[Rfam]
RNA sequence: CACAGUUAGGCCUGAAUCCUUGCUCUGCCCGUGAUUUUAACAACUGGGUGAGCAAAGUUUCAGGUGUGUCUGCGG
Numbered sequence: 001c002a003c004a005g006u007u008a009g010g011c012c013u014g015a016a017u018c019c020u021u022g023c024u025c026u027g028c029c030c031g032u033g034a035u036u037u038u039a040a041c042a043a044c045u046g047g048g049u050g051a052g053c054a055a056a057g058u059u060u061c062a063g064g065u066g067u068g069u070c071u072g073c074g075g
Stems, first nucleotide, its partner, number of pairs: 003072003007068001010065006018057001020055002023052003028048003

mir-87 microRNA precursor family: a 75-nucleotide sequence from Neodiprion lecontei. On this family, see Ruby et al., Genome Res 2007: "Evolution, biogenesis, expression, and target predictions of a substantially expanded set of Drosophila microRNAs". Rfam 15.1 lists 420 matches to the family in 285 species. The source organism's lineage runs through Eukaryota, Panarthropoda, Eumetabola, Diprioninae and Neodiprion. The base pairs follow the family's consensus structure, which was predicted with RNAalifold.